Annotation:
The family of this 117-nucleotide sequence from Megasphaera sp. UPII 135-E is "FMN riboswitch aptamer (RFN element)". The match comes from Rfam's covariance-model search (107 bits). Pairs were carried over by alignment from the consensus structure, which is taken from published work.

[Rfam]
RNA sequence: AUGAAUCUUCAGGGCAGGGUGCAAUUCCCGAUCGGCGGUAUAGUCCGCGAGCGCGUUAGCGCAGGAUUUGGUGCAAUUCCAAAACCGACAGUAUAGUCUGGAUAGAAGAAGGUGAAA
Numbered sequence: 001a002u003g004a005a006u007c008u009u010c011a012g013g014g015c016a017g018g019g020u021g022c023a024a025u026u027c028c029c030g031a032u033c034g035g036c037g038g039u040a041u042a043g044u045c046c047g048c049g050a051g052c053g054c055g056u057u058a059g060c061g062c063a064g065g066a067u068u069u070g071g072u073g074c075a076a077u078u079c080c081a082a083a084a085c086c087g088a089c090a091g092u093a094u095a096g097u098c099u100g101g102a103u104a105g106a107a108g109a110a111g112g113u114g115a116a117a
Stems, first nucleotide, its partner, number of pairs: 005113006017029003031097002033087002035048004043085002051062003067083005089100003
Dot-bracket structure: ....((((((......(((.......))).[[((((((....[[))))..(((......)))....(((((.......)))))]])).(((....]]))).......))))))....